[Rfam]
RNA sequence: CCCGAUUUCGAUUCGACACAAUACUCUGCCGCGGUAUUGUGUGACCUGCAGUGUCAGUCGAUUUCGGG
Numbered sequence: 001c002c003c004g005a006u007u008u009c010g011a012u013u014c015g016a017c018a019c020a021a022u023a024c025u026c027u028g029c030c031g032c033g034g035u036a037u038u039g040u041g042u043g044a045c046c047u048g049c050a051g052u053g054u055c056a057g058u059c060g061a062u063u064u065c066g067g068g
Stems, first nucleotide, its partner, number of pairs: 001068005009060005020038006043055003
Shown here is a 68-nucleotide RNA from Plenodomus tracheiphilus, a member of the family "bZIP non canonical Hac1/Xbp1 intron". The family has 112 seed sequences and 1,325 matches in Rfam 15.1. The organism belongs to Plenodomus tracheiphilus, within Eukaryota. It is annotated as a small RNA. Pairs were carried over by alignment from the consensus structure, which was predicted with RNAfold. Rfam's curators write: bZIP intron RNA is a non-canonical intron that was first reported in HAC1 gene in yeast and XBP1 gene in Metazoa.